[Rfam]
RNA sequence: UGGGCAGUAUCAAAUGAACUGCACCCGAAGGUUCAAAAGUUAAUAGUUAUUUCUGCCUUGAUCCAUUGCGCGACAGGGACGGAGGA
Numbered sequence: 001u002g003g004g005c006a007g008u009a010u011c012a013a014a015u016g017a018a019c020u021g022c023a024c025c026c027g028a029a030g031g032u033u034c035a036a037a038a039g040u041u042a043a044u045a046g047u048u049a050u051u052u053c054u055g056c057c058u059u060g061a062u063c064c065a066u067u068g069c070g071c072g073a074c075a076g077g078g079a080c081g082g083a084g085g086a
Base pairs, nucleotide, nucleotide: 002025003024004022005021006020007019008018010017011016053082054081055080056078057077058076059075060074062073063072
RNA: pan motif